[Rfam]
RNA: ASpks TB sRNA
Organism: Nocardia donostiensis
RNA sequence: UUUGACGGACCCCAGCCACAGCGGCCGAUCCGUCGGCCGGUCCUGGCCGUAGGUCGCCAGCAGGGCCUGCGCCUC
Numbered sequence: 001u002u003u004g005a006c007g008g009a010c011c012c013c014a015g016c017c018a019c020a021g022c023g024g025c026c027g028a029u030c031c032g033u034c035g036g037c038c039g040g041u042c043c044u045g046g047c048c049g050u051a052g053g054u055c056g057c058c059a060g061c062a063g064g065g066c067c068u069g070c071g072c073c074u075c
Base pairs, nucleotide, nucleotide: 015025016024017023031071032070033069038065043060044059045058047056049054